[Rfam]
RNA: Acido-Lenti-1 RNA
Organism: Limnoglobus roseus
RNA sequence: CCAGGGGCUUACGCCCCUGGCUAACAACUGUCGCCGCUCCGGGGCU
Number, nucleotide and partner (000 for none) at each position: 001c020002c019003a018004g017005g016006g015007g014008c013009u000010u000011a000012c000013g008014c007015c006016c005017c004018u003019g002020g001021c000022u000023a000024a000025c000026a000027a000028c000029u000030g000031u000032c000033g045034c044035c043036g000037c041038u000039c000040c000041g037042g000043g035044g034045c033046u000